A member of the RNA family "Lysine riboswitch aptamer" from Alkaliphilus serpentinus, 185 nucleotides long.
RNA sequence: UUAAUAAAUAGAGGCGCACCGAAGAUGAGUAUAUAUCAGGUGAUCAGGAGGAAGGUCUCCAAAACUGAUGUAGAAAGGCUGACGUGCCGAAACAGUCAUGCUACCUUGCGGUAUGAUUGUUGGGUGCUCUGGUGAAUAACUAGGCAACUGUCAUGGAAUAAUUUCUAUGGAGUGCUAUUUGUUAA
Numbered sequence: 001u002u003a004a005u006a007a008a009u010a011g012a013g014g015c016g017c018a019c020c021g022a023a024g025a026u027g028a029g030u031a032u033a034u035a036u037c038a039g040g041u042g043a044u045c046a047g048g049a050g051g052a053a054g055g056u057c058u059c060c061a062a063a064a065c066u067g068a069u070g071u072a073g074a075a076a077g078g079c080u081g082a083c084g085u086g087c088c089g090a091a092a093c094a095g096u097c098a099u100g101c102u103a104c105c106u107u108g109c110g111g112u113a114u115g116a117u118u119g120u121u122g123g124g125u126g127c128u129c130u131g132g133u134g135a136a137u138a139a140c141u142a143g144g145c146a147a148c149u150g151u152c153a154u155g156g157a158a159u160a161a162u163u164u165c166u167a168u169g170g171a172g173u174g175c176u177a178u179u180u181g182u183u184a185a
Stems, first nucleotide, its partner, number of pairs: 006180006016087004023080002032072008091121012122149002125146004130142004151170007